[Rfam]
RNA sequence: AUCUUAUCAAGAGCAGGCGGAGGGACUAGCCCGAUGAAGCCCGGCAACCGGCGUACAGCAAUGUCGCACGGUGCUAAUUCUUGCGGAAACGUCACCGUUUCUGACAGAUGAGAG
Number, nucleotide and partner (000 for none) at each position: 001a000002u113003c112004u111005u110006a109007u108008c107009a000010a000011g000012a000013g042014c000015a000016g041017g040018c039019g000020g000021a000022g032023g031024g030025a000026c083027u000028a081029g080030c024031c023032c022033g000034a000035u000036g000037a000038a000039g018040c017041c016042c013043g075044g074045c073046a072047a000048c071049c070050g067051g000052c000053g064054u063055a062056c000057a000058g000059c000060a000061a000062u055063g054064u053065c000066g000067c050068a000069c000070g049071g048072u046073g045074c044075u043076a000077a000078u000079u106080c029081u028082u000083g026084c103085g102086g101087a100088a099089a098090c000091g000092u000093c000094a000095c000096c000097g000098u089099u088100u087101c086102u085103g084104a000105c000106a079107g008108a007109u006110g005111a004112g003113a002114g000
Source information: SAM riboswitch aptamer (S box leader): a 114-nucleotide RNA from Cohnella faecalis. It scores 76 bits against the family's covariance model. Taxonomically the source falls in Cohnella (Bacteria, Bacillati, Bacillota, Paenibacillaceae).